[Rfam]
RNA sequence: UAAGUAGGACGGAUAAUCGCGGCUUUUAGCUGAGGAAAGUCCGGGCUUCAUAGGGCAGGAUGCCGGAUAACAUCCGGUGGAGGUGACUCCAAGGACAGUGCAACAGAAAUAUACCGCCUUAUUAUUAAGGUAAGGGUGGAAGGGCAGUGUAAGAGACUACCGCCUCAUUGGUAACAAUGAGGGCACAUGUAAACCCCAUCCGAAGCAAGACCAAAACAAAGAUUAAGGGUUGCCCGCCCACUUUAGGUAGGUCGCUAGAGACAGCUGGCGACAGCUGUAGUAGAUAGAUGAUUAUCGAUAACAUAACCCGGCUUAUAGUCCUGCUUAAUUA
Dot-bracket structure: ((((((((((((((((((.(((((...)))))....[[[.[[[[[((((...[[[[.((((((((((.....)))))(((((....)))).)((...(((((...........((((((((....))))))..)).......((.(((.......))).))(((((((((....)))))))).)...)))..)))))))))))))...((((......((......((((.]]]]))))...)).....)))).......(((((((....)))))))...........)))))))..........]]]]]]]].).))))))))))....
The record is a 331-nucleotide RNA from Acetitomaculum ruminis, which matches "Bacterial RNase P class A" in Rfam. It scores 294 bits against the family's covariance model. It is annotated as a ribozyme. About the family: Ribonuclease P (RNase P) is a ubiquitous endoribonuclease, found in archaea, bacteria and eukarya as well as chloroplasts and mitochondria. The organism belongs to Acetitomaculum ruminis, within Bacteria.